Shown here is a 144-nucleotide RNA sequence from Populus trichocarpa, a member of the family "MIR480 microRNA precursor family". For this family Rfam cites "Novel and mechanical stress-responsive MicroRNAs in Populus trichocarpa that are absent from Arabidopsis" (Lu et al., Plant Cell, 2005). The family's consensus secondary structure was predicted with WAR.

RNA sequence: UAAUCUGUUCGGGGUACAUUCUUAUUUAGUUAUGACAGACUCACACCUGCUUGUUUAGAAUCAUCCGUUAUUACAAACUCGACUACAUCAUUGACAUUGAAAAACACAUGACAACUACCCUGUGAGUAAUGAUUUUUUGAGAUU
Dot-bracket structure: ...(((.....(.((...(...((..(((((.................................................................................)))))...))..)...))..)......)))..